[Rfam]
RNA sequence: AAUGCCCUGUUUUUCGCGAAGUCCUACGUUCCACGUAGGAUAGAACCUAACGGUCUAGCGUAAACGGGGCUUU
Numbered sequence: 001a002a003u004g005c006c007c008u009g010u011u012u013u014u015c016g017c018g019a020a021g022u023c024c025u026a027c028g029u030u031c032c033a034c035g036u037a038g039g040a041u042a043g044a045a046c047c048u049a050a051c052g053g054u055c056u057a058g059c060g061u062a063a064a065c066g067g068g069g070c071u072u073u
Stems, first nucleotide, its partner, number of pairs: 001073002004070009015060003021041009
Rfam assigns this 73-nucleotide RNA sequence to the family "DUF3800-VIII RNA". From the family's description: Bacteroidetes, Cyanobacteria, Firmicutes, Planctomycetes (1 example), Proteobacteria, Tenericutes (1 example).